[Rfam]
Description:
The family of this 358-nucleotide sequence from Gemmatimonas phototrophica is "transfer-messenger RNA". Taxonomically the source falls in Gemmatimonas (Bacteria, Pseudomonadati, Gemmatimonadota, Gemmatimonadaceae). A reference for the family is Williams (2002), "The tmRNA Website: invasion by an intron", Nucleic Acids Res.

RNA sequence: GGGGGUGACUGGCUUCGACGGGGUUGGUGAAGCUCUGGUAGCGUGCCCAGGUCCUCGAGCACCUGGUAAAACACUCGGGAAAAUUCCAAUCGCGAACAACAACCUCGCGCUCGCUGCCUAACCUUCGGGUUACGUAGCAGUGCUCACGCGGCAGCCCGCCCGGGGCGGCACGUGAGUAUCGCAAAUCUGGGCUAGUCUUUCGGUGCGCGUUCCGUCAAAAGGCGAAACUCUAGAACGCUUGUCCCGAGGUGGGCUUUCCAUUGGCCAGCCAAGGGAGACCUCAAUCAAUGGAAUACGCACGUAGAAGCUGGGGUCGAUCUAGUCUCGGACAGGGGUUCGAUUCCCCUCACCUCCACUA
Numbered sequence: 001g002g003g004g005g006u007g008a009c010u011g012g013c014u015u016c017g018a019c020g021g022g023g024u025u026g027g028u029g030a031a032g033c034u035c036u037g038g039u040a041g042c043g044u045g046c047c048c049a050g051g052u053c054c055u056c057g058a059g060c061a062c063c064u065g066g067u068a069a070a071a072c073a074c075u076c077g078g079g080a081a082a083a084u085u086c087c088a089a090u091c092g093c094g095a096a097c098a099a100c101a102a103c104c105u106c107g108c109g110c111u112c113g114c115u116g117c118c119u120a121a122c123c124u125u126c127g128g129g130u131u132a133c134g135u136a137g138c139a140g141u142g143c144u145c146a147c148g149c150g151g152c153a154g155c156c157c158g159c160c161c162g163g164g165g166c167g168g169c170a171c172g173u174g175a176g177u178a179u180c181g182c183a184a185a186u187c188u189g190g191g192c193u194a195g196u197c198u199u200u201c202g203g204u205g206c207g208c209g210u211u212c213c214g215u216c217a218a219a220a221g222g223c224g225a226a227a228c229u230c231u232a233g234a235a236c237g238c239u240u241g242u243c244c245c246g247a248g249g250u251g252g253g254c255u256u257u258c259c260a261u262u263g264g265c266c267a268g269c270c271a272a273g274g275g276a277g278a279c280c281u282c283a284a285u286c287a288a289u290g291g292a293a294u295a296c297g298c299a300c301g302u303a304g305a306a307g308c309u310g311g312g313g314u315c316g317a318u319c320u321a322g323u324c325u326c327g328g329a330c331a332g333g334g335g336u337u338c339g340a341u342u343c344c345c346c347u348c349a350c351c352u353c354c355a356c357u358a
Stems, first nucleotide, its partner, number of pairs: 001354007019327009032314008042301005047066005054079006115136003119132005143176006151169002154166001158192007197222004203216001209239001211237001242276004248270003252266003256293004261288003331347005